[Rfam]
Shown here is a 62-nucleotide RNA sequence from Zavarzinia compransoris, a member of the family "Fluoride riboswitch aptamer (crcB RNA motif)".
A search with the family's covariance model found it, with a score of 44 bits.
Rfam 15.1 lists 2,293 matches to the family in 1,982 species.
RNA sequence: GUGGCGAAUGGGAAUGGGGUCUCCCUUGUAACCGCGAUGAUGCUGAUGACUCCUGCAACGGC
Numbered sequence: 001g002u003g004g005c006g007a008a009u010g011g012g013a014a015u016g017g018g019g020u021c022u023c024c025c026u027u028g029u030a031a032c033c034g035c036g037a038u039g040a041u042g043c044u045g046a047u048g049a050c051u052c053c054u055g056c057a058a059c060g061g062c
Stems, first nucleotide, its partner, number of pairs: 010025004016053006034043003
Dot-bracket structure: .........[[[[..((((((]]]]........(((....)))....)))))).........